About this RNA: The family of this 102-nucleotide sequence from Desulfosporosinus sp. HMP52 is "Purine riboswitch aptamer". Its Rfam clan is "Purine riboswitches". Lineage of the source: Bacteria > Bacillota > Clostridia > Eubacteriales > Desulfosporosinus.
RNA sequence: GAUAACAAGUGAAUUAUAGUUCAUAUAAUAGCAGAGAUAAGGUCUGCAAGUUUCUACCGGACUGCCGUAAAUCGUCCGACUAUGAGCGAAGUGUCGAGGUAU
Numbered sequence: 001g002a003u004a005a006c007a008a009g010u011g012a013a014u015u016a017u018a019g020u021u022c023a024u025a026u027a028a029u030a031g032c033a034g035a036g037a038u039a040a041g042g043u044c045u046g047c048a049a050g051u052u053u054c055u056a057c058c059g060g061a062c063u064g065c066c067g068u069a070a071a072u073c074g075u076c077c078g079a080c081u082a083u084g085a086g087c088g089a090a091g092u093g094u095c096g097a098g099g100u101a102u
Base pairs, nucleotide, nucleotide: 019087020086021085022084023083024082025081029049031047032046033045034044035043058078059077060076061075062074064072